[Rfam]
RNA: ArcZ RNA
Organism: Duffyella gerundensis
RNA sequence: GCACUACCCAAUACCAAACUGAUGCCCUGUGAUAACAGAUGUUAAUAACGGCUUCAGUACCCUUUUCCCUGGUGUUGGCGCAGUAUUCGCGCACCCCAGCUCAGCU
Numbered sequence: 001g002c003a004c005u006a007c008c009c010a011a012u013a014c015c016a017a018a019c020u021g022a023u024g025c026c027c028u029g030u031g032a033u034a035a036c037a038g039a040u041g042u043u044a045a046u047a048a049c050g051g052c053u054u055c056a057g058u059a060c061c062c063u064u065u066u067c068c069c070u071g072g073u074g075u076u077g078g079c080g081c082a083g084u085a086u087u088c089g090c091g092c093a094c095c096c097c098a099g100c101u102c103a104g105c106u
Stems, first nucleotide, its partner, number of pairs: 019057004024052003071095003078092004